[Rfam]
RNA sequence: CGCUGUUGUUUACAGGCACGGGCGUAGAGGUAACUCCGCGCCCGUGCGAGCACGUUGAUGGCAGGAAAAGAAAA
Numbered sequence: 001c002g003c004u005g006u007u008g009u010u011u012a013c014a015g016g017c018a019c020g021g022g023c024g025u026a027g028a029g030g031u032a033a034c035u036c037c038g039c040g041c042c043c044g045u046g047c048g049a050g051c052a053c054g055u056u057g058a059u060g061g062c063a064g065g066a067a068a069a070g071a072a073a074a
Stems, first nucleotide, its partner, number of pairs: 003015003016047009027036003
Overview:
Shown here is a 74-nucleotide RNA sequence from Candidatus Moranella endobia, a member of the family "tpke11". The base pairs follow the family's consensus structure, which was predicted with WAR. The family's RNA type in Rfam is small RNA. Rfam's curators write: In Yersinia located in ICR upstream dnaJ (chaperone)gene. Has temperature responsive RNA structure. On this family, see Rivas et al., Curr Biol 2001: "Computational identification of noncoding RNAs in E. coli by comparative genomics".